[Rfam]
RNA sequence: AAUAAGUAAUAUAAGCUUUUUCGUAUAAUCGCGAGGAUAGGGCUCGUGAGUCUCUACAGGCUACCGUAAAUAGCUUGACUACGAAAAAUCUGCGGCUUGAA
Numbered sequence: 001a002a003u004a005a006g007u008a009a010u011a012u013a014a015g016c017u018u019u020u021u022c023g024u025a026u027a028a029u030c031g032c033g034a035g036g037a038u039a040g041g042g043c044u045c046g047u048g049a050g051u052c053u054c055u056a057c058a059g060g061c062u063a064c065c066g067u068a069a070a071u072a073g074c075u076u077g078a079c080u081a082c083g084a085a086a087a088a089u090c091u092g093c094g095g096c097u098u099g100a101a
Stems, first nucleotide, its partner, number of pairs: 018087008029049007057077007

Overview: Shown here is a 101-nucleotide sequence from Alteribacillus bidgolensis, a member of the family "Purine riboswitch aptamer". The source organism's lineage runs through Bacteria, Bacillati, Caryophanales, Bacillaceae and Alteribacillus. A search with the family's covariance model found it, with a score of 79 bits. Rfam links the family to the GO term purine nucleobase biosynthetic process.